Rfam assigns this 167-nucleotide RNA sequence from Oryza barthii to the family "MIR807 microRNA precursor family".
The family has 30 seed sequences and 1,514 matches in Rfam 15.1.
The match comes from Rfam's covariance-model search (147 bits).
Gene Ontology terms of the family: miRNA-mediated post-transcriptional gene silencing and RISC complex.
A reference for the family is Luo et al. (2006), "Rice embryogenic calli express a unique set of microRNAs, suggesting regulatory roles of microRNAs in plant post-embryogenic development", FEBS Lett.
[Rfam]
RNA sequence: AACCACGCUAUCAAUGAAUGGAUUCACUCGCGAGAUGACGUGGUUGUUUCAUCUAGGACGAGGAUGUGGCAUCAUAUUACUAGCCAUGGCACGAAAUUAAUAGGAUGCCACGUCCUCAUCCUAGAUGGAACAACCACGUUCAUUGAUAGUUCAUUGAUAGUGUGGUU
Number, nucleotide and partner (000 for none) at each position: 001a167002a166003c165004c164005a163006c162007g161008c000009u159010a158011u157012c156013a155014a154015u153016g000017a151018a150019u149020g000021g000022a000023u000024u000025c000026a147027c000028u145029c000030g143031c000032g141033a140034g000035a000036u000037g000038a139039c138040g000041u136042g135043g134044u133045u132046g131047u130048u129049u000050c000051a126052u125053c000054u123055a122056g000057g120058a119059c000060g000061a000062g000063g114064a113065u112066g000067u000068g000069g108070c107071a106072u105073c104074a000075u102076a101077u100078u099079a098080c000081u000082a000083g000084c000085c000086a097087u096088g000089g000090c000091a000092c000093g000094a000095a000096a087097u086098u079099a078100a077101u076102a075103g000104g073105a072106u071107g070108c069109c000110a000111c000112g065113u064114c063115c000116u000117c000118a000119u058120c057121c000122u055123a054124g000125a052126u051127g000128g000129a048130a047131c046132a045133a044134c043135c042136a041137c000138g039139u038140u033141c032142a000143u030144u000145g028146a000147u026148a000149g019150u018151u017152c000153a015154u014155u013156g012157a011158u010159a009160g000161u007162g006163u005164g004165g003166u002167u001